[Rfam]
RNA sequence: UGGCUUGAAAAACCUGUCGCUUGGGGCCAUAUGACGGAUGCCGGGUUCGCCCGGCUAUGGUGAUAAAUUGUGUCGCGUAAUAGACGCAGCGGACCCGGGGGCAGUACCCGGCGGUUCCACCACAUGCCUCGUUCCGGGUCACAAGGCUGGACGGGGUGUCUGACGGGGCCGAACUAGGAUCGACGUGUGUUCAAAGGCGAUAUUUUUACCCGGCCCGAGUAAGCCGUGAAACUGUUCAAAACUCAUAAGUGCCAACGAUAACGAAGCACUCGCCAUUGCAGCGUAACUGAGGGCCUCACGGCCUGACGUUACUCUAAAAUAGCGCGGUUGAACCCACCGGGCAACAGAAGGGAAUUCA
Dot-bracket structure: .......................................(((((......)))))...(((((......(((((((........(((.(((...(((((.......)))))(((((((..............................................)))))))............)))))).......)))))))..)))))((((..[[...[))))......]..]].......................................................................................((((.[[[..[))))............]..]]].